RNA sequence: AAAGACACUCGGUAGGUGAGGUUACCAUAGGGAUUUGGUUUUACCUAAGAUUGCUGCCGCAAAAUUGUGGAGACACGAUUAGUUGGUUAGCAGGCUAUGUCGGAACAAGGCAUAACCUAAUGCAAUUUUUACGCCCUAUGAUACUAAAGCUUGAACGAUGUACCAUGUGG
Dot-bracket structure: ....(...(.(.[.(((..(((...(((((((.................(((((..(.((.....((((....))))....)).).......((.(..(((......])))..).))....))))).......)))))))..)))...)))....).....)...)....

Background
Rfam assigns this 170-nucleotide sequence from Lachnospiraceae bacterium 2_1_46FAA to the family "M-box riboswitch aptamer (ykoK leader)". Pairs were carried over by alignment from the consensus structure. M-box riboswitch, also know as ykoK leader is described as a metaloregulatory RNA that sense divalent metals and function as a genetic control element of genes related to divalent metal transport in bacteria. It was first reported upstream of the B.subtilis ykoK gene and genes with related functions in other bacteria. Taxonomically the source falls in Lachnospiraceae (Bacteria, Bacillati, Clostridia, Lachnospirales).